Shown here is a 116-nucleotide RNA from Apostasia shenzhenica, a member of the family "Small nucleolar RNA Z278". Rfam's curators write: snoZ278 is a C/D box small nucleolar RNA. Its methylation guide targets have not been reported. A reference for the family is Chen et al. (2003), "The high diversity of snoRNAs in plants: identification and comparative study of 120 snoRNA genes from Oryza sativa", Nucleic Acids Res. NCBI's taxonomy places the organism under Eukaryota, Liliopsida, Asparagales, Orchidaceae, Apostasia.

[Rfam]
RNA sequence: GCCAAUGAUGUUCCGUCCUGAAUUUAUGAGAUGUGGAAAGUUUUAAGGCCCUGUUUUGCAGGGAGAACCUCCUUGGAGCUGCCGCAUUCAAAUGACAUUAUGGGACUUUCUGAGGC
Numbered sequence: 001g002c003c004a005a006u007g008a009u010g011u012u013c014c015g016u017c018c019u020g021a022a023u024u025u026a027u028g029a030g031a032u033g034u035g036g037a038a039a040g041u042u043u044u045a046a047g048g049c050c051c052u053g054u055u056u057u058g059c060a061g062g063g064a065g066a067a068c069c070u071c072c073u074u075g076g077a078g079c080u081g082c083c084g085c086a087u088u089c090a091a092a093u094g095a096c097a098u099u100a101u102g103g104g105a106c107u108u109u110c111u112g113a114g115g116c
Base pairs, nucleotide, nucleotide: 001116002115003114049063050062051061052060053059
Dot-bracket structure: (((.............................................(((((.....)))))..................................................)))